RNA sequence: UCAGCCGGCCGGGCGGCCGCUCCCGUCACAUGCCGAAAGGCGGCGGGGGAGGAAAGUCCGGGCUCCACGGAGAAACGGUGCCGGGUAACGCCCGGCGGGGGCGACCCCAGGGAAAGUGCCACAGAGAACGAACCGCCUCGGCCUGCCGGGGUAAGGGUGAAAAGGUGGGGUAAGAGCCCACCGCGCGACCGGCAACGGGAGCGGCACGGCAAACCCCACCGGGAGCAAGACCGAAUAGGGACGACGCGGCGGCUCCGGCUGCCAGCCCUUCUCCGGGCCGGUCGUCCGGGUGGGUUGCUCGAGGCGGCGCGCGAGCGCCGUCCCAGAGGAAUGGUCGCCCGGUGGCUUCGGCCAUCGACAGAACCCGGCUUACAGGCCGGCUGACUUC
Numbered sequence: 001u002c003a004g005c006c007g008g009c010c011g012g013g014c015g016g017c018c019g020c021u022c023c024c025g026u027c028a029c030a031u032g033c034c035g036a037a038a039g040g041c042g043g044c045g046g047g048g049g050a051g052g053a054a055a056g057u058c059c060g061g062g063c064u065c066c067a068c069g070g071a072g073a074a075a076c077g078g079u080g081c082c083g084g085g086u087a088a089c090g091c092c093c094g095g096c097g098g099g100g101g102c103g104a105c106c107c108c109a110g111g112g113a114a115a116g117u118g119c120c121a122c123a124g125a126g127a128a129c130g131a132a133c134c135g136c137c138u139c140g141g142c143c144u145g146c147c148g149g150g151g152u153a154a155g156g157g158u159g160a161a162a163a164g165g166u167g168g169g170g171u172a173a174g175a176g177c178c179c180a181c182c183g184c185g186c187g188a189c190c191g192g193c194a195a196c197g198g199g200a201g202c203g204g205c206a207c208g209g210c211a212a213a214c215c216c217c218a219c220c221g222g223g224a225g226c227a228a229g230a231c232c233g234a235a236u237a238g239g240g241a242c243g244a245c246g247c248g249g250c251g252g253c254u255c256c257g258g259c260u261g262c263c264a265g266c267c268c269u270u271c272u273c274c275g276g277g278c279c280g281g282u283c284g285u286c287c288g289g290g291u292g293g294g295u296u297g298c299u300c301g302a303g304g305c306g307g308c309g310c311g312c313g314a315g316c317g318c319c320g321u322c323c324c325a326g327a328g329g330a331a332u333g334g335u336c337g338c339c340c341g342g343u344g345g346c347u348u349c350g351g352c353c354a355u356c357g358a359c360a361g362a363a364c365c366c367g368g369c370u371u372a373c374a375g376g377c378c379g380g381c382u383g384a385c386u387u388c
Stems, first nucleotide, its partner, number of pairs: 001384010011373001012339007020049008054371003058368005063225004072272001074270001076221005081095005096110001097108004111216002116214002118210003133156002135152007164182006183205001184203003189198003229296004239287006265278004303322008
RNA: Bacterial RNase P class A